[Rfam]
RNA sequence: CUGUGCCUGGCUCCCUGCAUGCCACUCGUAUCGACGCCAAUCAUACCCACGGAUUGGCAACUGCGGCUGGCGUGUGAGGAGCCAAGCAUAC
Numbered sequence: 001c002u003g004u005g006c007c008u009g010g011c012u013c014c015c016u017g018c019a020u021g022c023c024a025c026u027c028g029u030a031u032c033g034a035c036g037c038c039a040a041u042c043a044u045a046c047c048c049a050c051g052g053a054u055u056g057g058c059a060a061c062u063g064c065g066g067c068u069g070g071c072g073u074g075u076g077a078g079g080a081g082c083c084a085a086g087c088a089u090a091c
Base pairs, nucleotide, nucleotide: 002090003089004088005087006086008084009083010082011081012080013079014078016076017075018074019073020072021071022070023069024068027065028064029063
Shown here is a 91-nucleotide RNA from Musa acuminata, a member of the family "mir-160 microRNA precursor family".
On this family, see Rhoades et al., Cell 2002: "Prediction of plant microRNA targets".